[Rfam]
Nucleotides: 074
Stems, first nucleotide, its partner, number of pairs: 001073007010026004028044005050066005
Number, partner (000 for none) and nucleotide at each position: 001073g002072c003071a004070c005069c006068c007067g008000u009000a010026g011025c012024u013023c014000a015000a016000c017000u018000g019000g020000a021000u022000a023013g024012a025011g026010u027000a028044u029043c030042u031041g032040a033000c034000u035000a036000c037000g038000a039000a040032u041031c042030a043029g044028a045000c046000g047000g048000u049000u050066a051065g052064a053063g054062g055000u056000u057000c058000g059000a060000c061000u062054c063053c064052u065051c066050u067007c068006g069005g070004g071003u072002g073001c074000a